[Rfam]
RNA sequence: AAUCAGUAAAGGCAAACCAUUUGAAAGAGUGGGACGCAAAGCAACAGGUCUAAGGUUACAUACUACGAUGGCUGUGCUGCCUGA
Numbered sequence: 001a002a003u004c005a006g007u008a009a010a011g012g013c014a015a016a017c018c019a020u021u022u023g024a025a026a027g028a029g030u031g032g033g034a035c036g037c038a039a040a041g042c043a044a045c046a047g048g049u050c051u052a053a054g055g056u057u058a059c060a061u062a063c064u065a066c067g068a069u070g071g072c073u074g075u076g077c078u079g080c081c082u083g084a
Stems, first nucleotide, its partner, number of pairs: 012037002017032006040078004045074003048069003055063002

Description: The family of this 84-nucleotide RNA sequence from Niallia nealsonii is "c-di-GMP-I riboswitch aptamer". NCBI's taxonomy places the organism under Bacteria, Bacillati, Bacilli, Bacillaceae, Niallia. Rfam's curators write: GEMM was predicted in a large-scale screen for bacterial structured RNA regulatory elements. It scores 75 bits against the family's covariance model. Gene Ontology term of the family: cyclic-di-GMP binding.